[Rfam]
RNA sequence: AACAAAGCUGUCUAGGGUUCCGUUAAUGGUUUUUCCGUUAAGUCUGGACCGAGAGAGAGCGUAUAGUCAGAAGUUGACUAUAUAACACGGAAGGAUAAAAGCCUGGGAGAC
Numbered sequence: 001a002a003c004a005a006a007g008c009u010g011u012c013u014a015g016g017g018u019u020c021c022g023u024u025a026a027u028g029g030u031u032u033u034u035c036c037g038u039u040a041a042g043u044c045u046g047g048a049c050c051g052a053g054a055g056a057g058a059g060c061g062u063a064u065a066g067u068c069a070g071a072a073g074u075u076g077a078c079u080a081u082a083u084a085a086c087a088c089g090g091a092a093g094g095a096u097a098a099a100a101g102c103c104u105g106g107g108a109g110a111c
Stems, first nucleotide, its partner, number of pairs: 007060003011056002015050002020047002022044001023041006061083008086106001088109001092104003
Source information:
Rfam assigns this 111-nucleotide RNA from Anaerobacillus arseniciselenatis to the family "Guanidine-I riboswitch aptamer". It scores 84 bits against the family's covariance model. Taxonomically the source falls in Anaerobacillus (Bacteria, Bacillati, Bacillota, Bacilli). The pairing is the family consensus, mapped onto this sequence. About the family: This family represents a conserved RNA structure found upstream of the ykkC and yxkD genes in Bacillus subtilis and related genes in other bacteria. The function of this family is unclear although it has been suggested that it may function to switch on efflux pumps and detoxification systems in response to harmful environmental molecules.